Shown here is a 60-nucleotide RNA from Prochlorococcus marinus, a member of the family "Glutamine-II riboswitch aptamer". Pairs were carried over by alignment from the consensus structure, which is taken from published work. A reference for the family is Huang et al. (2019), "Structure and ligand binding of the glutamine-II riboswitch", Nucleic Acids Res.

RNA sequence: UAACGUUCAUCCUAGUAAUAUCUGGACGCAUGACAUGGAAAUAGGGAACGGGAUUUCCAU
Numbered sequence: 001u002a003a004c005g006u007u008c009a010u011c012c013u014a015g016u017a018a019u020a021u022c023u024g025g026a027c028g029c030a031u032g033a034c035a036u037g038g039a040a041a042u043a044g045g046g047a048a049c050g051g052g053a054u055u056u057c058c059a060u
Stems, first nucleotide, its partner, number of pairs: 004050005010026003035060008